[Rfam]
Nucleotides: 154
Base pairs, nucleotide, nucleotide: 003152004151005150006149007148008146009145010144017029018028019027031133032132033122034121035063036062037061038060058120059119066098067097102118103117104116105115106114124136125135126134
Number, partner (000 for none) and nucleotide at each position: 001000a002000u003152a004151c005150g006149u007148u008146c009145u010144c011000a012000g013000g014000g015000c016000g017029g018028g019027g020000u021000g022000c023000a024000a025000u026000u027019c028018c029017c030000c031133a032132c033122c034121g035063g036062c037061g038060g039000u040000a041000a042000g043000c044000a045000g046000c047000c048000c049000u050000g051000a052000c053000u054000g055000c056000a057000a058120g059119c060038c061037c062036g063035c064000g065000a066098g067097c068000g069000c070000c071000u072000g073000g074000a075000u076000g077000g078000c079000u080000c081000c082000a083000g084000c085000c086000a087000u088000g089000c090000a091000g092000g093000g094000u095000c096000a097067g098066c099000a100000g101000a102118u103117c104116u105115g106114g107000u108000g109000u110000a111000a112000c113000u114106c115105c116104a117103g118102a119059g120058c121034c122033g123000a124136c125135g126134g127000u128000c129000a130000a131000a132032g133031u134126c135125c136124g137000g138000a139000u140000g141000a142000a143000a144010g145009a146008g147000c148007a149006a150005c151004g152003u153000g154000a